[Rfam]
RNA sequence: AAAGCCCACUUCAGGGUCCCCCGCUCCGUGUAUUUGACAAGCUGAGUUCGACACUCAGUCUGAUAGAGUGUCAGUUUGUCAAAUACCCCAAGCGAGGGGCUCCAUGAC
Numbered sequence: 001a002a003a004g005c006c007c008a009c010u011u012c013a014g015g016g017u018c019c020c021c022c023g024c025u026c027c028g029u030g031u032a033u034u035u036g037a038c039a040a041g042c043u044g045a046g047u048u049c050g051a052c053a054c055u056c057a058g059u060c061u062g063a064u065a066g067a068g069u070g071u072c073a074g075u076u077u078g079u080c081a082a083a084u085a086c087c088c089c090a091a092g093c094g095a096g097g098g099g100c101u102c103c104a105u106g107a108c
Stems, first nucleotide, its partner, number of pairs: 022094004028088001030086014050072004055067002
Shown here is a 108-nucleotide RNA sequence from Polypterus senegalus, a member of the family "mir-223 microRNA precursor family". The family has 27 seed sequences and 674 matches in Rfam 15.1. It scores 99 bits against the family's covariance model. The base pairs follow the family's consensus structure, which was predicted with RNAalifold.